Record summary:
The record is a 117-nucleotide RNA from Oryza sativa, which matches "Plastid-psbA-1 3UTR RNA" in Rfam. It scores 85 bits against the family's covariance model. Rfam's curators write: Plastid psbA-1 is a non-coding RNA (ncRNA) present in plastids. It was identified in inverted repeat sequences in the 3 prime untranslate region (3UTR) of photosystem II quinone-binding protein (psbA).
RNA sequence: UUGAAGUUCCAUCUCUUAAUGGAUAAGGUUUUUCUACUAACAUAUAGGAAGGUUUGAAGGAAGGAAAGCCAGAAAUACCCAAUAUCCUGUUGGAACAGGAUAUUGGGUAUUUCUUUU
Numbered sequence: 001u002u003g004a005a006g007u008u009c010c011a012u013c014u015c016u017u018a019a020u021g022g023a024u025a026a027g028g029u030u031u032u033u034c035u036a037c038u039a040a041c042a043u044a045u046a047g048g049a050a051g052g053u054u055u056g057a058a059g060g061a062a063g064g065a066a067a068g069c070c071a072g073a074a075a076u077a078c079c080c081a082a083u084a085u086c087c088u089g090u091u092g093g094a095a096c097a098g099g100a101u102a103u104u105g106g107g108u109a110u111u112u113c114u115u116u117u
Stems, first nucleotide, its partner, number of pairs: 008023005066117002071114008080105003084101005